[Rfam]
The record is a 103-nucleotide RNA sequence from Papaver nudicaule, which matches "Small nucleolar RNA snoR31/Z110/Z27" in Rfam. A reference for the family is Barneche et al. (2001), "Identification of 66 box C/D snoRNAs in Arabidopsis thaliana: extensive gene duplications generated multiple isoforms predicting new ribosomal RNA 2'-O-methylation sites", J Mol Biol. From the family's description: This family contains several related snoRNAs including R31, Z27 and Z110. The base pairs follow the family's consensus structure, which was predicted with PFOLD. A search with the family's covariance model found it, with a score of 58 bits.
RNA sequence: AUCAUCAAGUGAUGAAAUAUGAAAGUUAUAAUCUUAGGACACCUUCCUACACAGUGUAAGCCAAUGCUGUGAAUGAGAAAAACAUUUUUAUUCUGAUGAUGAU
Numbered sequence: 001a002u003c004a005u006c007a008a009g010u011g012a013u014g015a016a017a018u019a020u021g022a023a024a025g026u027u028a029u030a031a032u033c034u035u036a037g038g039a040c041a042c043c044u045u046c047c048u049a050c051a052c053a054g055u056g057u058a059a060g061c062c063a064a065u066g067c068u069g070u071g072a073a074u075g076a077g078a079a080a081a082a083c084a085u086u087u088u089u090a091u092u093c094u095g096a097u098g099a100u101g102a103u
Stems, first nucleotide, its partner, number of pairs: 001103007047056001